A member of the RNA family "Yeast U1 spliceosomal RNA" from Lachancea mirantina, 487 nucleotides long. The family's consensus secondary structure is taken from published work. Rfam links the family to the GO terms mRNA 5'-splice site recognition, U1 snRNP and pre-mRNA 5'-splice site binding. From the family's description: U1 is a small nuclear RNA (snRNA) component of the spliceosome (involved in pre-mRNA splicing). Its 5' end forms complementary base pairs with the 5' splice junction, thus defining the 5' donor site of an intron. There are significant differences in sequence and secondary structure between metazoan and yeast U1 snRNAs, the latter being much longer (568 nucleotides as compared to 164 nucleotides in human). Nevertheless, secondary structure predictions suggest that all U1 snRNAs share a 'common core' consisting of helices I, II, the proximal region of III, and IV. This family represents the larger yeast sequences. Taxonomically the source falls in Lachancea (Eukaryota, Opisthokonta, saccharomyceta, Saccharomycotina). Its Rfam clan is "U1 clan".
RNA sequence: AUACUUACCUUAAGACGUCAGGGGAGAUCAUGAAGUCCUACUGACCGGAUAUGCCUUUCAUGAGGGAUACUUGUUUUAUUAAGGAAACAAGUUCCCUUGCACAGUUUUCUUUUGGAAAAUUGCACACAUUUGCGAAAGGUGUGUUUGCUGACGUCCUCGUUCCCUCGUCUUGUCGGUUCUAUGGCGCUCGCGCUAUGUGCUGAUCGAGGCCCUUUUUUUUUCCUGCCUGGAGGAGUAUGGUGCUGAUUACAAGUCAGCGCUGGGGGAGCUGGAUCGAGAAUUCUUGUUUGAGUAUCAACCACGCUUUCAAAGAAAACCAAUUCCUUAAGCUUUGGAUAUUGAAUCUCUUCGAGGAGCCCUUUGGGGUUCUUUUGAAGGGCUGAGAUCUCCUUCUAAGCUUUUGAGAAGGUUUGUUUUCUGUGGUUUGGCAUGAGAGAAGUCUUGAUUUGGUAGAGGCGGGUGGGUCUUAUAAUUUUUGAUGUCUACC
Number, nucleotide and partner (000 for none) at each position: 001a000002u000003a000004c000005u000006u000007a000008c000009c000010u472011u471012a470013a467014g466015a465016c000017g045018u044019c043020a042021g041022g039023g038024g037025a036026g000027a000028u000029c000030a000031u000032g000033a000034a000035g000036u025037c024038c023039u022040a000041c021042u020043g019044a018045c017046c147047g146048g145049a144050u143051a142052u141053g140054c139055c138056u137057u136058u135059c134060a000061u000062g000063a000064g000065g000066g130067a129068u128069a000070c000071u000072u000073g000074u000075u000076u000077u000078a000079u000080u000081a000082a000083g000084g000085a000086a000087a000088c000089a000090a000091g000092u000093u000094c000095c000096c000097u000098u000099g000100c000101a000102c000103a000104g000105u000106u000107u000108u000109c000110u000111u000112u000113u000114g000115g000116a000117a000118a000119a000120u000121u000122g000123c000124a000125c000126a000127c000128a068129u067130u066131u000132g000133c000134g059135a058136a057137a056138g055139g054140u053141g052142u051143g050144u049145u048146u047147g046148c000149u000150g000151a000152c458153g457154u456155c000156c455157u454158c453159g000160u000161u267162c266163c265164c264165u263166c262167g210168u209169c208170u207171u206172g205173u203174c202175g201176g200177u199178u000179c000180u000181a196182u195183g194184g193185c192186g191187c000188u000189c000190g000191c186192g185193c184194u183195a182196u181197g000198u000199g177200c176201u175202g174203a173204u000205c172206g171207a170208g169209g168210c167211c000212c000213u000214u000215u000216u000217u000218u000219u000220u235221u234222c233223c232224u231225g000226c000227c000228u000229g000230g000231a224232g223233g222234a221235g220236u000237a000238u000239g000240g260241u259242g258243c257244u256245g255246a254247u000248u000249a000250c000251a000252a000253g000254u246255c245256a244257g243258c242259g241260c240261u000262g166263g165264g164265g163266g162267a161268g000269c000270u000271g000272g000273a000274u000275c000276g000277a000278g000279a000280a000281u000282u000283c000284u000285u000286g000287u000288u000289u000290g000291a000292g000293u000294a000295u000296c000297a000298a000299c000300c000301a000302c000303g000304c000305u000306u000307u000308c000309a000310a000311a000312g000313a000314a000315a000316a000317c000318c000319a000320a000321u000322u000323c000324c000325u000326u000327a000328a000329g000330c000331u000332u000333u000334g000335g000336a000337u000338a000339u000340u000341g000342a000343a000344u000345c000346u000347c000348u000349u000350c000351g000352a000353g000354g000355a000356g000357c000358c000359c000360u000361u000362u000363g000364g000365g000366g000367u000368u000369c000370u000371u000372u000373u000374g000375a000376a000377g000378g000379g000380c000381u000382g000383a000384g000385a000386u000387c000388u000389c000390c000391u000392u000393c000394u000395a000396a000397g000398c000399u000400u000401u000402u000403g000404a000405g000406a000407a000408g000409g000410u000411u000412u000413g000414u000415u000416u000417u000418c000419u000420g000421u000422g000423g000424u000425u000426u432427g431428g000429c000430a000431u427432g426433a000434g000435a000436g000437a000438a000439g000440u000441c000442u000443u000444g000445a000446u000447u000448u000449g000450g000451u000452a000453g158454a157455g156456g154457c153458g152459g000460g000461u000462g000463g000464g000465u015466c014467u013468u000469a000470u012471a011472a010473u000474u000475u000476u000477u000478g000479a000480u000481g000482u000483c000484u000485a000486c000487c000